[Rfam]
RNA sequence: GGCCAUCUGCGCGACUGGCGCUUGGAUGGGAUACCAUCGGGGAGCGCAGAGACUGACGCCGCGCGCCUGGGCACCGCUU
Numbered sequence: 001g002g003c004c005a006u007c008u009g010c011g012c013g014a015c016u017g018g019c020g021c022u023u024g025g026a027u028g029g030g031a032u033a034c035c036a037u038c039g040g041g042g043a044g045c046g047c048a049g050a051g052a053c054u055g056a057c058g059c060c061g062c063g064c065g066c067c068u069g070g071g072c073a074c075c076g077c078u079u
Base pairs, nucleotide, nucleotide: 006050007049008048009047010046011045012044015041016040017067018066019065020064021063026037027036028035029034058072059071060070
RNA: ZMP/ZTP riboswitch aptamer (pfl RNA motif)